[Rfam]
RNA sequence: CCUUCCCCUAGAGGCUUUGCAGGUGUGGCUGCUCUGUCACAUGUGUGUCAGUAGGUGGCAGAGAGUAGAGAAGUUAUGUCUAUGCUCAGUGUUUUGACCUGUGAAUAUCUGAAUGAUUAGUAGCCUAACAAU
Dot-bracket structure: .((.((((((..(((...(((..((((((......))))))..))))))..)))).)).))......(..(.(((((.....((.(((((((((........))))).)))).))....))))).)..)...
Numbered sequence: 001c002c003u004u005c006c007c008c009u010a011g012a013g014g015c016u017u018u019g020c021a022g023g024u025g026u027g028g029c030u031g032c033u034c035u036g037u038c039a040c041a042u043g044u045g046u047g048u049c050a051g052u053a054g055g056u057g058g059c060a061g062a063g064a065g066u067a068g069a070g071a072a073g074u075u076a077u078g079u080c081u082a083u084g085c086u087c088a089g090u091g092u093u094u095u096g097a098c099c100u101g102u103g104a105a106u107a108u109c110u111g112a113a114u115g116a117u118u119a120g121u122a123g124c125c126u127a128a129c130a131a132u
Stems, first nucleotide, its partner, number of pairs: 002061002005058002007055004013049003019046003024041006068129001071126001073124005083115002086112004090107005
Rfam assigns this 132-nucleotide RNA to the family "Small nucleolar RNA SNORA17". Rfam's curators put it in the seed alignment. Rfam describes the family as follows. snoRNA ACA 17 belongs to the H/ACA family of snoRNAs and is predicted to guide pseudouridylation of the 28S rRNA at positions U4659 and U4598. It shares the same host gene together with ACA43. NB This family has a high threshold value to exclude a large number of closely related sequences that do not appear to have conserved H and ACA boxes, and may be pseudogenes. The base pairs follow the family's consensus structure, which was predicted with RNAalifold.